RNA sequence: GGGGCGGACCGGGCCCCUCUGACAGCUAUGCUGUGAUGUCGGCCGCAUCG
Numbered sequence: 001g002g003g004g005c006g007g008a009c010c011g012g013g014c015c016c017c018u019c020u021g022a023c024a025g026c027u028a029u030g031c032u033g034u035g036a037u038g039u040c041g042g043c044c045g046c047a048u049c050g
Stems, first nucleotide, its partner, number of pairs: 006044002009042004022034005
RNA: terC RNA
Organism: Neogemmobacter tilapiae